This 140-nucleotide RNA sequence from Oscillochloris trichoides belongs to the Rfam family "SAM riboswitch aptamer (S box leader)". Lineage of the source: Bacteria > Chloroflexota > Chloroflexia > Chloroflexales > Oscillochloris trichoides. The family's consensus secondary structure is taken from published work.
RNA sequence: AACUCAUCCAGAGCGGUGGAGGGACCGGCCCGACGAUACCGCGCCAACCACUAGGUAUGGUGAACAUUUCGCCAUGAGCGAAUGACAUUCACUCCCUACGUAUGGUGGCAAUUCCGGCAGUGCAAUCUGGAAGAUGAGAG
Number, nucleotide and partner (000 for none) at each position: 001a000002a000003c138004u137005c136006a135007u134008c133009c000010a000011g000012a000013g042014c041015g040016g039017u038018g000019g000020a000021g031022g030023g029024a000025c117026c116027g115028g114029c023030c022031c021032g000033a000034c000035g000036a000037u000038a017039c016040c015041g014042c013043g109044c108045c107046a106047a000048c105049c104050a101051c100052u000053a000054g000055g000056u000057a000058u000059g000060g000061u000062g000063a000064a000065c000066a000067u000068u000069u000070c000071g000072c000073c000074a000075u000076g000077a000078g000079c000080g000081a000082a000083u000084g000085a000086c000087a000088u000089u000090c000091a000092c000093u000094c000095c000096c000097u000098a000099c000100g051101u050102a000103u000104g049105g048106u046107g045108g044109c043110a000111a000112u000113u132114c028115c027116g026117g025118c129119a128120g127121u000122g000123c000124a000125a000126u000127c120128u119129g118130g000131a000132a113133g008134a007135u006136g005137a004138g003139a000140g000